This 97-nucleotide sequence from Strobilanthes cusia belongs to the Rfam family "Plastid-rps12 3UTR RNA". The base pairs follow the family's consensus structure, which was predicted with LocARNA. It is annotated as a cis-regulatory element. A reference for the family is Richter et al. (2023), "Retrograde signaling in plants: A critical review focusing on the GUN pathway and beyond", Plant Commun. The source organism's lineage runs through Eukaryota, Tracheophyta, Acanthaceae, Ruellieae and Strobilanthes. Plastid rpl20 is a non-coding RNA (ncRNA) recognised in plastids. It was found in the three prime untranslated region (3UTR) of rps12 gene, its 3UTR location sugest a role in transcript maduration.
[Rfam]
RNA sequence: GGUUUCUAUUGGUGCGAACCCAAUCACCUAAAUUUCCGAUGAGAAGCAAUUCUCCAUUGAUAGCAAAUGGUUAUCCAUUAAACGGAGGAAAUCUUAU
Numbered sequence: 001g002g003u004u005u006c007u008a009u010u011g012g013u014g015c016g017a018a019c020c021c022a023a024u025c026a027c028c029u030a031a032a033u034u035u036c037c038g039a040u041g042a043g044a045a046g047c048a049a050u051u052c053u054c055c056a057u058u059g060a061u062a063g064c065a066a067a068u069g070g071u072u073a074u075c076c077a078u079u080a081a082a083c084g085g086a087g088g089a090a091a092u093c094u095u096a097u
Stems, first nucleotide, its partner, number of pairs: 009023004052087004056078002059075006